RNA sequence: CUCUCGCCCAAAGAAUCGCAAUCGAAGCUUACACACAGAGGGCUUCAUGCCUCUCAUCGUACACAACGCUUCGGGAGAAAGUCCCCGGACAGCCUACAACACCUGUAGGACCUGCGGAAACGCGCCGCCAUAGAAGCAUGUGGCUUACCUCGUCUUCUCCUCCUCCUCUACCCUCGCCCUCUACCCUUUCGCACUCUCCUUCGACCUCUACCAAGUGAGACGGUCGAGCUUGGAAGACCACAUGGACGAUGAUAUGAGUCCGCGCCUCUCUGCUUCGCCCGUCCUUAACGCGGUCUAGUGUGGCUGGUGAGGAGGAUAUGGGGACUUUUGAUGGCAUGAGUGUUGAUCAAGGAGUCGGCAAGGACACUUUCGUCGAAUUCGAUAGUUAUGCGAUUGCUCACUUUCUCUGCGCCUUCUACCUCAACGUCAAGUUCACUCUUGACUGCGAGAUGAAGAUGCGAGCUGGGUAACUCGAUGGGGCUUAUUCUUGGUGCGAGG
Numbered sequence: 001c002u003c004u005c006g007c008c009c010a011a012a013g014a015a016u017c018g019c020a021a022u023c024g025a026a027g028c029u030u031a032c033a034c035a036c037a038g039a040g041g042g043c044u045u046c047a048u049g050c051c052u053c054u055c056a057u058c059g060u061a062c063a064c065a066a067c068g069c070u071u072c073g074g075g076a077g078a079a080a081g082u083c084c085c086c087g088g089a090c091a092g093c094c095u096a097c098a099a100c101a102c103c104u105g106u107a108g109g110a111c112c113u114g115c116g117g118a119a120a121c122g123c124g125c126c127g128c129c130a131u132a133g134a135a136g137c138a139u140g141u142g143g144c145u146u147a148c149c150u151c152g153u154c155u156u157c158u159c160c161u162c163c164u165c166c167u168c169u170a171c172c173c174u175c176g177c178c179c180u181c182u183a184c185c186c187u188u189u190c191g192c193a194c195u196c197u198c199c200u201u202c203g204a205c206c207u208c209u210a211c212c213a214a215g216u217g218a219g220a221c222g223g224u225c226g227a228g229c230u231u232g233g234a235a236g237a238c239c240a241c242a243u244g245g246a247c248g249a250u251g252a253u254a255u256g257a258g259u260c261c262g263c264g265c266c267u268c269u270c271u272g273c274u275u276c277g278c279c280c281g282u283c284c285u286u287a288a289c290g291c292g293g294u295c296u297a298g299u300g301u302g303g304c305u306g307g308u309g310a311g312g313a314g315g316a317u318a319u320g321g322g323g324a325c326u327u328u329u330g331a332u333g334g335c336a337u338g339a340g341u342g343u344u345g346a347u348c349a350a351g352g353a354g355u356c357g358g359c360a361a362g363g364a365c366a367c368u369u370u371c372g373u374c375g376a377a378u379u380c381g382a383u384a385g386u387u388a389u390g391c392g393a394u395u396g397c398u399c400a401c402u403u404u405c406u407c408u409g410c411g412c413c414u415u416c417u418a419c420c421u422c423a424a425c426g427u428c429a430a431g432u433u434c435a436c437u438c439u440u441g442a443c444u445g446c447g448a449g450a451u452g453a454a455g456a457u458g459c460g461a462g463c464u465g466g467g468u469a470a471c472u473c474g475a476u477g478g479g480g481c482u483u484a485u486u487c488u489u490g491g492u493g494c495g496a497g498g
Stems, first nucleotide, its partner, number of pairs: 002498006008491004014395006022075001023073006038053004079483003083480004113124004320367001322365001326363005332357004343350002397467004402462003
RNA: RNase MRP
Organism: Venturia inaequalis